[Rfam]
RNA sequence: CGACGAAAAGGCAAACCCUGCGCGAGCAGGGGGCGCAAAGCCACGGGACUCACGCAGUCAGCCGGGCCACCGAAA
Numbered sequence: 001c002g003a004c005g006a007a008a009a010g011g012c013a014a015a016c017c018c019u020g021c022g023c024g025a026g027c028a029g030g031g032g033g034c035g036c037a038a039a040g041c042c043a044c045g046g047g048a049c050u051c052a053c054g055c056a057g058u059c060a061g062c063c064g065g066g067c068c069a070c071c072g073a074a075a
Stems, first nucleotide, its partner, number of pairs: 011036002016031006034061001040067003044064003047059003